[Rfam]
The record is a 216-nucleotide RNA sequence from Ureibacillus massiliensis, which matches "PyrR binding site" in Rfam. Pairs were carried over by alignment from the consensus structure, which is taken from published work.

RNA sequence: UUCACCUUUAAAGACAGUCCAGAGAGGCUGAAAAGGUAUUUGUGAAAUGUUAAACACAUUUUACUGUAGAAUGAUUGUAGUUGAGAAAUCCAUUGCUGAAUAUAAAUUCAGUAGGUUCAAAACGAGUCAAAUCAUCACAGGCGUAGUGUAUUUAACAUGCUCUUUAAACACAACUAUCAACAACCUCUUAAGCUGAUGCUUAGGAGGUUUUUUAUU
Numbered sequence: 001u002u003c004a005c006c007u008u009u010a011a012a013g014a015c016a017g018u019c020c021a022g023a024g025a026g027g028c029u030g031a032a033a034a035g036g037u038a039u040u041u042g043u044g045a046a047a048u049g050u051u052a053a054a055c056a057c058a059u060u061u062u063a064c065u066g067u068a069g070a071a072u073g074a075u076u077g078u079a080g081u082u083g084a085g086a087a088a089u090c091c092a093u094u095g096c097u098g099a100a101u102a103u104a105a106a107u108u109c110a111g112u113a114g115g116u117u118c119a120a121a122a123c124g125a126g127u128c129a130a131a132u133c134a135u136c137a138c139a140g141g142c143g144u145a146g147u148g149u150a151u152u153u154a155a156c157a158u159g160c161u162c163u164u165u166a167a168a169c170a171c172a173a174c175u176a177u178c179a180a181c182a183a184c185c186u187c188u189u190a191a192g193c194u195g196a197u198g199c200u201u202a203g204g205a206g207g208u209u210u211u212u213u214a215u216u
Stems, first nucleotide, its partner, number of pairs: 004037006015030005048157007056149005180211001182209012
Dot-bracket structure: ...((((((.....(((((......))))).))))))..........(((((((.(((((....................................................................................))))).)))))))......................(.((((((((((((....)))))))))))).).....
NCBI's taxonomy places the organism under Bacteria, Bacillati, Bacillota, Caryophanales, Ureibacillus massiliensis.